RNA: Plastid-ccsA-ndhD-1 3UTR RNA
RNA sequence: UGAGAACCAUUUGGAUCAAGUAGUGUAGUGAUUCAAAUGGUUCUCAAAA
Numbered sequence: 001u002g003a004g005a006a007c008c009a010u011u012u013g014g015a016u017c018a019a020g021u022a023g024u025g026u027a028g029u030g031a032u033u034c035a036a037a038u039g040g041u042u043c044u045c046a047a048a049a
Stems, first nucleotide, its partner, number of pairs: 001046018